[Rfam]
RNA sequence: GGCAGAUGAUGUUUAUUCUCACAAGGGUCUUUAGAAGUCCACCCCAGGCAUGGCUCAGAAAGCUGGCUGGCAACACUGAUGCCAGAAA
Dot-bracket structure: ((((...........................................................................)))).....
A member of the RNA family "Small nucleolar RNA SNORD35" from Cavia porcellus, 88 nucleotides long. Rfam classes the family as a C/D-box small nucleolar RNA. U35 is a C/D box snoRNA located in intron 6 of ribosomal protein L13A and intron 3 of ribosomal protein S11 in humans and at homologous positions in mouse and chicken ribosomal protein genes. U35 guides the methylation of 2'-O-ribose sites in 28S rRNA. Gene Ontology terms of the family: nucleolus and RNA processing. It scores 59 bits against the family's covariance model.